Rfam assigns this 79-nucleotide RNA from Hermetia illucens to the family "drz-agam-1 ribozyme". The source organism's lineage runs through Eukaryota, Ecdysozoa, Brachycera, Stratiomyomorpha and Hermetia.
RNA sequence: UACUAAUAAACCCUAUCUCCACCUCCACGUGGUGAACGCUGGGUGCUCUUUCGUAACGAAAAGCAGCAGACGGAGAAGG
Number, nucleotide and partner (000 for none) at each position: 001u000002a000003c000004u000005a000006a000007u000008a000009a000010a000011c000012c079013c078014u077015a000016u075017c000018u073019c072020c000021a033022c032023c031024u000025c000026c000027a000028c000029g000030u000031g023032g022033u021034g000035a000036a000037c000038g000039c000040u000041g000042g000043g000044u066045g000046c000047u063048c000049u061050u060051u059052c058053g057054u000055a000056a000057c053058g052059a051060a050061a049062a000063g047064c000065a000066g044067c000068a000069g000070a000071c000072g019073g018074a000075g016076a000077a014078g013079g012